[Rfam]
Guanidine-I riboswitch aptamer: a 97-nucleotide RNA from Oceanobacillus iheyensis. The organism belongs to Oceanobacillus iheyensis, within Bacteria. Rfam describes the family as follows. This family represents a conserved RNA structure found upstream of the ykkC and yxkD genes in Bacillus subtilis and related genes in other bacteria.

RNA sequence: GUAAAUACUUUCUAGGGUUCCGCCUUAUUGGGUCUGGUCCGAGAGAAAGUGCAAAGAAUUUUUUCUUUGUCCACGGAGGGAUAAAAGCCCGGGAGAU
Numbered sequence: 001g002u003a004a005a006u007a008c009u010u011u012c013u014a015g016g017g018u019u020c021c022g023c024c025u026u027a028u029u030g031g032g033u034c035u036g037g038u039c040c041g042a043g044a045g046a047a048a049g050u051g052c053a054a055a056g057a058a059u060u061u062u063u064u065c066u067u068u069g070u071c072c073a074c075g076g077a078g079g080g081a082u083a084a085a086a087g088c089c090c091g092g093g094a095g096a097u
Stems, first nucleotide, its partner, number of pairs: 007050006015040002020037002022034001023031002051070008072092001074095001078090003